The record is a 110-nucleotide RNA sequence from Sphingobium yanoikuyae, which matches "TPP riboswitch aptamer (THI element)" in Rfam.
[Rfam]
RNA sequence: CGGCCAUCCCCGGGGGGCCGCUCAUGCGCGGCUGAGAGGUGGUCAGCAGACCACGACCCGCUGAACCUGAUCCGGCUGAUACCGGCGUAGGGAGGGCAAGGCGGCAGGUC
Numbered sequence: 001c002g003g004c005c006a007u008c009c010c011c012g013g014g015g016g017g018c019c020g021c022u023c024a025u026g027c028g029c030g031g032c033u034g035a036g037a038g039g040u041g042g043u044c045a046g047c048a049g050a051c052c053a054c055g056a057c058c059c060g061c062u063g064a065a066c067c068u069g070a071u072c073c074g075g076c077u078g079a080u081a082c083c084g085g086c087g088u089a090g091g092g093a094g095g096g097c098a099a100g101g102c103g104g105c106a107g108g109u110c
Base pairs, nucleotide, nucleotide: 008096009095010094011060012059013058014057016054017032018031019030020029021028040053041052042051043050044049066091067090068089069088072085073084074083075082